Selenocysteine transfer RNA: a 91-nucleotide RNA sequence from Pasteurellaceae bacterium RH1A. It scores 82 bits against the family's covariance model. On this family, see Mizutani and Goto, FEBS Lett 2000: "Eukaryotic selenocysteine tRNA has the 9/4 secondary structure". Taxonomically the source falls in Pasteurellaceae (Bacteria, Pseudomonadati, Gammaproteobacteria, Pasteurellales). Pairs were carried over by alignment from the consensus structure, which is taken from published work.

[Rfam]
RNA sequence: GGAAGUAAGUCGUCUCCGGUGAGGCGGCAGGUCUUCAAAACCUGUUGAGGACGCCAGCGUUCUCGGGUGGGUUCGACUCCCAUUUACUUCC
Numbered sequence: 001g002g003a004a005g006u007a008a009g010u011c012g013u014c015u016c017c018g019g020u021g022a023g024g025c026g027g028c029a030g031g032u033c034u035u036c037a038a039a040a041c042c043u044g045u046u047g048a049g050g051a052c053g054c055c056a057g058c059g060u061u062c063u064c065g066g067g068u069g070g071g072u073u074c075g076a077c078u079c080c081c082a083u084u085u086a087c088u089u090c091c
Stems, first nucleotide, its partner, number of pairs: 001091009011026006027045006047064005068082004